[Rfam]
Rfam assigns this 212-nucleotide RNA sequence from Striga asiatica to the family "MIR394 microRNA precursor family". Gene Ontology terms of the family: miRNA-mediated post-transcriptional gene silencing and RISC complex.

RNA sequence: CUUACAGAGUUUAUUUGGCAUUCUGUCCACCUCCUCCACUUUCUGUACUUUAUUUGCAUUUCUACACUACAUUUUAUUUUUACUUUCAUAAAAUGACAAGAUCAAAUGAAUUUCUUUUUUUUUUUUCACCUUAAAAAAUAAAAAUAAUAAUGUGAUCUGAUUUAAUGUUGUAAAUGGAGGAGGUGGGCAUGCUGCCAACGGAGCUCUGUUGG
Numbered sequence: 001c002u003u004a005c006a007g008a009g010u011u012u013a014u015u016u017g018g019c020a021u022u023c024u025g026u027c028c029a030c031c032u033c034c035u036c037c038a039c040u041u042u043c044u045g046u047a048c049u050u051u052a053u054u055u056g057c058a059u060u061u062c063u064a065c066a067c068u069a070c071a072u073u074u075u076a077u078u079u080u081u082a083c084u085u086u087c088a089u090a091a092a093a094u095g096a097c098a099a100g101a102u103c104a105a106a107u108g109a110a111u112u113u114c115u116u117u118u119u120u121u122u123u124u125u126u127c128a129c130c131u132u133a134a135a136a137a138a139u140a141a142a143a144a145u146a147a148u149a150a151u152g153u154g155a156u157c158u159g160a161u162u163u164a165a166u167g168u169u170g171u172a173a174a175u176g177g178a179g180g181a182g183g184u185g186g187g188c189a190u191g192c193u194g195c196c197a198a199c200g201g202a203g204c205u206c207u208g209u210u211g212g
Base pairs, nucleotide, nucleotide: 011202015198016197017196018195019194020193024189025188026187027186028185029184030183031182032181033180034179035178036177037176038175
On this family, see Jones-Rhoades and Bartel, Mol Cell 2004: "Computational identification of plant microRNAs and their targets, including a stress-induced miRNA".
Lineage of the source: Eukaryota > Embryophyta > Magnoliopsida > Lamiales > Striga.